[Rfam]
RNA: Small nucleolar RNA SNORD94
RNA sequence: CAGGCUGUGAUGAUUGGCGCAGGGGUACGGACCUCAGCUGAGUUAUGGGAGCUGAGUGUACGUGUUUCUCCUCCGUCCUGCAUGUGGCAGUGCGGUGGCGAGCACGUACAUGAGAUAUGCCUCGAUCUGAGCCUG
Numbered sequence: 001c002a003g004g005c006u007g008u009g010a011u012g013a014u015u016g017g018c019g020c021a022g023g024g025g026u027a028c029g030g031a032c033c034u035c036a037g038c039u040g041a042g043u044u045a046u047g048g049g050a051g052c053u054g055a056g057u058g059u060a061c062g063u064g065u066u067u068c069u070c071c072u073c074c075g076u077c078c079u080g081c082a083u084g085u086g087g088c089a090g091u092g093c094g095g096u097g098g099c100g101a102g103c104a105c106g107u108a109c110a111u112g113a114g115a116u117a118u119g120c121c122u123c124g125a126u127c128u129g130a131g132c133c134u135g
Base pairs, nucleotide, nucleotide: 001135002134003133004132005131